The family of this 90-nucleotide sequence from Tetracentron sinense is "Small nucleolar RNA U54".
RNA sequence: GGCUCGAUGAAUGUAGGCUCCUAAUUGGGGCCAAUAUACGCUAUUCUGAAAAUAGAAUGUGCUGAGAAAUUUUGAUGAUAUAUGAGAGCU
Numbered sequence: 001g002g003c004u005c006g007a008u009g010a011a012u013g014u015a016g017g018c019u020c021c022u023a024a025u026u027g028g029g030g031c032c033a034a035u036a037u038a039c040g041c042u043a044u045u046c047u048g049a050a051a052a053u054a055g056a057a058u059g060u061g062c063u064g065a066g067a068a069a070u071u072u073u074g075a076u077g078a079u080a081u082a083u084g085a086g087a088g089c090u
Base pairs, nucleotide, nucleotide: 001090002089003088004087005086
The base pairs follow the family's consensus structure, which was predicted with PFOLD. The literature on the family includes a 2003 paper in Nucleic Acids Res by Chen et al., "The high diversity of snoRNAs in plants: identification and comparative study of 120 snoRNA genes from Oryza sativa". U54 is a C/D box small nucleolar RNA, which acts as a methylation guide for 18S ribosomal RNA in plants. A search with the family's covariance model found it, with a score of 46 bits.